Rfam assigns this 141-nucleotide RNA from Abrus precatorius to the family "Small nucleolar RNA snoR138".
It scores 67 bits against the family's covariance model.
The family has 7 seed sequences and 308 matches in Rfam 15.1.
On this family, see Chen and Wu, Nucleic Acids Res 2009: "Mining small RNA sequencing data: a new approach to identify small nucleolar RNAs in Arabidopsis".
Pairs were carried over by alignment from the consensus structure, which was predicted with mfold.
Rfam links the family to the GO terms RNA processing and nucleolus.
Lineage of the source: Eukaryota > Streptophytina > Magnoliopsida > Gunneridae > Abrus.
[Rfam]
RNA sequence: UAUGCCUCCAGAAUAACCAAGCGGUGAAAUAAACACCGUUCGGUUCAGACAGAGGCACAUAUCAAGUGUCAAACAUUCGAAUAGGUUUGAGGGUACGGAACGCUUCUUCUCUGUUCCUUGCCUAGAUGUAUUCGGAUAUUC
Numbered sequence: 001u002a003u004g005c006c007u008c009c010a011g012a013a014u015a016a017c018c019a020a021g022c023g024g025u026g027a028a029a030u031a032a033a034c035a036c037c038g039u040u041c042g043g044u045u046c047a048g049a050c051a052g053a054g055g056c057a058c059a060u061a062u063c064a065a066g067u068g069u070c071a072a073a074c075a076u077u078c079g080a081a082u083a084g085g086u087u088u089g090a091g092g093g094u095a096c097g098g099a100a101c102g103c104u105u106c107u108u109c110u111c112u113g114u115u116c117c118u119u120g121c122c123u124a125g126a127u128g129u130a131u132u133c134g135g136a137u138a139u140u141c
Stems, first nucleotide, its partner, number of pairs: 003057005009052001015045004020040003024036003078134006084122003089119003093116001096113004